[Rfam]
RNA sequence: GUCCGUUCAUCCCUUCGGGGGACGCAUGAAACCACAUCAUGGAACGGGGGUGUGGU
Numbered sequence: 001g002u003c004c005g006u007u008c009a010u011c012c013c014u015u016c017g018g019g020g021g022a023c024g025c026a027u028g029a030a031a032c033c034a035c036a037u038c039a040u041g042g043a044a045c046g047g048g049g050g051u052g053u054g055g056u
Base pairs, nucleotide, nucleotide: 004046005045006044007043008042010022011021012020013019014018031056032055033054034053035052036051037049038048
RNA: Glutamine-II riboswitch aptamer